[Rfam]
The family of this 355-nucleotide sequence from Trichodelitschia bisporula is "Nuclear RNase P". NCBI's taxonomy places the organism under Eukaryota, Pezizomycotina, Dothideomycetes, Phaeotrichaceae, Trichodelitschia. Rfam classes the family as a ribozyme. The family is grouped with related families in Rfam's "RNaseP clan". The match comes from Rfam's covariance-model search (44 bits).

RNA sequence: GCCAUAGCUGCGUUUCUUUGCUACAAACAGAUGGCUGAGCUCCGCUCAGUUCAUCCCUAUACGCAAAUGAGAAAUUCGGAGUAAUCUCUACCUCUCGCUACCCUCUGUCUGCUUGCGGACGGAGCUCUGGCAGCUGCCUGUGAGGGCCUGGCGCGAAAGCGCUUGCAUCCGGCAUCAGAAACUCGGGGCUGCUCCUUCCUCAGGAGGGGUAUGCAACCAUGGGAGCUGGUGCAGAGAUUGUGUGCGUCUCUGCCGAAAGGUGGGGCGUGAUACUUGAGUGCAAUACGCGGCAUGAUUGACUCUGUUCUCCUUCGGGAUGCAGGGAAGAGCAUAAUUCGAUUCCGAUUAUUCUGGC
Numbered sequence: 001g002c003c004a005u006a007g008c009u010g011c012g013u014u015u016c017u018u019u020g021c022u023a024c025a026a027a028c029a030g031a032u033g034g035c036u037g038a039g040c041u042c043c044g045c046u047c048a049g050u051u052c053a054u055c056c057c058u059a060u061a062c063g064c065a066a067a068u069g070a071g072a073a074a075u076u077c078g079g080a081g082u083a084a085u086c087u088c089u090a091c092c093u094c095u096c097g098c099u100a101c102c103c104u105c106u107g108u109c110u111g112c113u114u115g116c117g118g119a120c121g122g123a124g125c126u127c128u129g130g131c132a133g134c135u136g137c138c139u140g141u142g143a144g145g146g147c148c149u150g151g152c153g154c155g156a157a158a159g160c161g162c163u164u165g166c167a168u169c170c171g172g173c174a175u176c177a178g179a180a181a182c183u184c185g186g187g188g189c190u191g192c193u194c195c196u197u198c199c200u201c202a203g204g205a206g207g208g209g210u211a212u213g214c215a216a217c218c219a220u221g222g223g224a225g226c227u228g229g230u231g232c233a234g235a236g237a238u239u240g241u242g243u244g245c246g247u248c249u250c251u252g253c254c255g256a257a258a259g260g261u262g263g264g265g266c267g268u269g270a271u272a273c274u275u276g277a278g279u280g281c282a283a284u285a286c287g288c289g290g291c292a293u294g295a296u297u298g299a300c301u302c303u304g305u306u307c308u309c310c311u312u313c314g315g316g317a318u319g320c321a322g323g324g325a326a327g328a329g330c331a332u333a334a335u336u337c338g339a340u341u342c343c344g345a346u347u348a349u350u351c352u353g354g355c
Base pairs, nucleotide, nucleotide: 001355002354003353004352009290014285017067018066019065020064030055031054032053033052034051035049036048037047038046039045040044077344078343079342080341081340086236087235088234089233136147137146138145139144150163151162152161153160154159165232166231167230168229169228171226187218188217292332293331294330296328297327
Ribonuclease P (RNase P) is a ubiquitous endoribonuclease, found in archaea, bacteria and eukarya as well as chloroplasts and mitochondria. Its best characterised activity is the generation of mature 5'-ends of tRNAs by cleaving the 5'-leader elements of precursor-tRNAs. Cellular RNase Ps are ribonucleoproteins. RNA from bacterial RNase Ps retains its catalytic activity in the absence of the protein subunit, i.e. it is a ribozyme. Isolated eukaryotic and archaeal RNase P RNA has not been shown to retain its catalytic function, but is still essential for the catalytic activity of the holoenzyme. Although the archaeal and eukaryotic holoenzyme s have a much greater protein content than the bacterial ones, the RNA cores from all the three lineages are homologous -- helices corresponding to P1, P2, P3, P4, and P10/11 are common to all cellular RNase P RNAs. Yet, there is considerable sequence variation, particularly among the eukaryotic RNAs.